The family of this 36-nucleotide RNA is "DUF805b RNA".
RNA sequence: AAGGCGGAAACUGAAAAGCUUGUAACAGAGUAAGUA
Number, nucleotide and partner (000 for none) at each position: 001a000002a021003g020004g019005c018006g000007g000008a000009a000010a035011c034012u033013g000014a000015a000016a000017a000018g005019c004020u003021u002022g000023u000024a000025a000026c000027a000028g000029a000030g000031u000032a000033a012034g011035u010036a000
About this RNA
The base pairs follow the family's consensus structure, which is taken from published work.